[Rfam]
RNA sequence: AUUCUUCCUCCUGCACUGCCGAUGUAUCGGCAGCAGCCCGCAGCCAGGGUGUCAAGGCUGCCGCGGGUUCCACCCGCGCCACCCGCCAGUUCGCCUCGGCAUCUCACCGGCGAACGCUGCCCACCGGGGCAUUGAUGC
Numbered sequence: 001a002u003u004c005u006u007c008c009u010c011c012u013g014c015a016c017u018g019c020c021g022a023u024g025u026a027u028c029g030g031c032a033g034c035a036g037c038c039c040g041c042a043g044c045c046a047g048g049g050u051g052u053c054a055a056g057g058c059u060g061c062c063g064c065g066g067g068u069u070c071c072a073c074c075c076g077c078g079c080c081a082c083c084c085g086c087c088a089g090u091u092c093g094c095c096u097c098g099g100c101a102u103c104u105c106a107c108c109g110g111c112g113a114a115c116g117c118u119g120c121c122c123a124c125c126g127g128g129g130c131a132u133u134g135a136u137g138c
Base pairs, nucleotide, nucleotide: 011036012035013034018031019030020029021028022027040061041060042059043058044057045056048082062078063077064076065075066074067073068072110138111137112136118131119130120129121128122127

The record is a 138-nucleotide RNA sequence from Acidovorax delafieldii, which matches "radC RNA" in Rfam. The base pairs follow the family's consensus structure, which is taken from published work.